[Rfam]
RNA: mir-219 microRNA precursor family
Organism: Echinococcus granulosus
RNA sequence: AGUGCUCUGAUUGUCCAUUCGCAUUUCUUGCUGCUCUCGUGUACAAUUCACUGCUCUUCAAGAUGUGUGUAUGGGCAUCGCAGUACU
Numbered sequence: 001a002g003u004g005c006u007c008u009g010a011u012u013g014u015c016c017a018u019u020c021g022c023a024u025u026u027c028u029u030g031c032u033g034c035u036c037u038c039g040u041g042u043a044c045a046a047u048u049c050a051c052u053g054c055u056c057u058u059c060a061a062g063a064u065g066u067g068u069g070u071a072u073g074g075g076c077a078u079c080g081c082a083g084u085a086c087u
Stems, first nucleotide, its partner, number of pairs: 001087006008080004013076005020069005026063005